About this RNA: This 356-nucleotide part of an RNA from bacterium HR41 belongs to the Rfam family "Bacterial small subunit ribosomal RNA". A search with the family's covariance model found it, with a score of 1572 bits. Clan: SSU clan. The base pairs follow the family's consensus structure, which is taken from published work.
RNA sequence: GGCGUAAAGCGCGCGUAGGCGGCCCGGUAAGUCCGCUGUGAAAGCCCGGGGCUCAACCCCGGGAGGCCGGUGGAUACUGCCGGGCUAGAGUCCGGAAGAGGCGGGUGGAAUUCCCGGUGUAGCGGUGAAAUGCGCAGAUAUCGGGAGGAACACCAAUGGCGAAGGCAGCCCGCUGGGACGGUACUGACGCUGAGGCGCGAAAGCGUGGGGAGCGAACAGGAUUAGAUACCCUGGUAGUCCACGCCGUAAACGAUGGGCACUAGGUGUGGGGGGUAGCCGACUCCCUCCGUGCCGAAGCUAACGCAUUAAGUGCCCCGCCUGGGGAGUACGGCCGCAAGGCUAAAACUCAAAGGAAU
Numbered sequence: 001g002g003c004g005u006a007a008a009g010c011g012c013g014c015g016u017a018g019g020c021g022g023c024c025c026g027g028u029a030a031g032u033c034c035g036c037u038g039u040g041a042a043a044g045c046c047c048g049g050g051g052c053u054c055a056a057c058c059c060c061g062g063g064a065g066g067c068c069g070g071u072g073g074a075u076a077c078u079g080c081c082g083g084g085c086u087a088g089a090g091u092c093c094g095g096a097a098g099a100g101g102c103g104g105g106u107g108g109a110a111u112u113c114c115c116g117g118u119g120u121a122g123c124g125g126u127g128a129a130a131u132g133c134g135c136a137g138a139u140a141u142c143g144g145g146a147g148g149a150a151c152a153c154c155a156a157u158g159g160c161g162a163a164g165g166c167a168g169c170c171c172g173c174u175g176g177g178a179c180g181g182u183a184c185u186g187a188c189g190c191u192g193a194g195g196c197g198c199g200a201a202a203g204c205g206u207g208g209g210g211a212g213c214g215a216a217c218a219g220g221a222u223u224a225g226a227u228a229c230c231c232u233g234g235u236a237g238u239c240c241a242c243g244c245c246g247u248a249a250a251c252g253a254u255g256g257g258c259a260c261u262a263g264g265u266g267u268g269g270g271g272g273g274u275a276g277c278c279g280a281c282u283c284c285c286u287c288c289g290u291g292c293c294g295a296a297g298c299u300a301a302c303g304c305a306u307u308a309a310g311u312g313c314c315c316c317g318c319c320u321g322g323g324g325a326g327u328a329c330g331g332c333c334g335c336a337a338g339g340c341u342a343a344a345a346c347u348c349a350a351a352g353g354a355a356u
Stems, first nucleotide, its partner, number of pairs: 001319003009316001011198004016192001018191003022085007030078002032074007045063007089185003092181003100174007107151001111147008122133003159166002203244006212238002217233004255315006263293011297304002321348003330341004